[Rfam]
RNA sequence: AAGGUCGAGUGAUGAGCAAAAAUGCAUAGUUCAGAUGAUCAAACCCUAGUGGUUAUGAUUACUUUGAAUAAAUAGUCUUUCGCUCCUAACUGACGGCCUU
Numbered sequence: 001a002a003g004g005u006c007g008a009g010u011g012a013u014g015a016g017c018a019a020a021a022a023u024g025c026a027u028a029g030u031u032c033a034g035a036u037g038a039u040c041a042a043a044c045c046c047u048a049g050u051g052g053u054u055a056u057g058a059u060u061a062c063u064u065u066g067a068a069u070a071a072a073u074a075g076u077c078u079u080u081c082g083c084u085c086c087u088a089a090c091u092g093a094c095g096g097c098c099u100u
Stems, first nucleotide, its partner, number of pairs: 003098005
RNA: Small nucleolar RNA snR60/Z15/Z230/Z193/J17